The record is a 103-nucleotide RNA sequence from Priestia filamentosa, which matches "Purine riboswitch aptamer" in Rfam.
The organism belongs to Priestia, within Bacteria.

[Rfam]
RNA sequence: AGAUUCAUAUGUAUUGUAACUCAUAUAAUUGCGAGAAUAUGGCUCGCUAAGUUUCUACCGGAUUACCGUAAAUAAUUCGACUAUGAGUAGGCAGCACGUUUUU
Numbered sequence: 001a002g003a004u005u006c007a008u009a010u011g012u013a014u015u016g017u018a019a020c021u022c023a024u025a026u027a028a029u030u031g032c033g034a035g036a037a038u039a040u041g042g043c044u045c046g047c048u049a050a051g052u053u054u055c056u057a058c059c060g061g062a063u064u065a066c067c068g069u070a071a072a073u074a075a076u077u078c079g080a081c082u083a084u085g086a087g088u089a090g091g092c093a094g095c096a097c098g099u100u101u102u103u
Stems, first nucleotide, its partner, number of pairs: 019088007029049001031047005059079007